Overview
Plastid-psbA-3 3UTR RNA: a 52-nucleotide RNA sequence from Grammatotheca bergiana. The family's consensus secondary structure was predicted with LocARNA. By type it is a cis-regulatory element. About the family: Plastid psbA-3 is a non-coding RNA (ncRNA) present in plastids. It was identified in inverted repeat sequences in the 3 prime untranslate region (3UTR) of photosystem II quinone-binding protein (psbA). The literature on the family includes a 2023 paper in Plant Commun by Richter et al., "Retrograde signaling in plants: A critical review focusing on the GUN pathway and beyond". NCBI's taxonomy places the organism under Eukaryota, Spermatophyta, eudicotyledons, campanulids, Grammatotheca.
RNA sequence: AGGAACAAUAACGCCCUCUUGAUAGAUCAAGAAAGGGGUUAUUGCUCCUUUU
Numbered sequence: 001a002g003g004a005a006c007a008a009u010a011a012c013g014c015c016c017u018c019u020u021g022a023u024a025g026a027u028c029a030a031g032a033a034a035g036g037g038g039u040u041a042u043u044g045c046u047c048c049u050u051u052u
Stems, first nucleotide, its partner, number of pairs: 001049004006044007017032005